[Rfam]
Record summary
Rfam assigns this 115-nucleotide sequence to the family "LOOT RNA". The base pairs follow the family's consensus structure, which is taken from published work.
RNA sequence: UGCCUAAACCUCGCUUUGCGGGGCAUGGCAAUAAAACCUUGUCAGGAAAAAGCUCCUCGUCUGGAGCACCUGACAAGGUCAUAUCCCGAAAGGGGUAUGGGUAGCGAAAGCUAUC
Numbered sequence: 001u002g003c004c005u006a007a008a009c010c011u012c013g014c015u016u017u018g019c020g021g022g023g024c025a026u027g028g029c030a031a032u033a034a035a036a037c038c039u040u041g042u043c044a045g046g047a048a049a050a051a052g053c054u055c056c057u058c059g060u061c062u063g064g065a066g067c068a069c070c071u072g073a074c075a076a077g078g079u080c081a082u083a084u085c086c087c088g089a090a091a092g093g094g095g096u097a098u099g100g101g102u103a104g105c106g107a108a109a110g111c112u113a114u115c
Stems, first nucleotide, its partner, number of pairs: 001030004009023006037078010052067005080099008100115006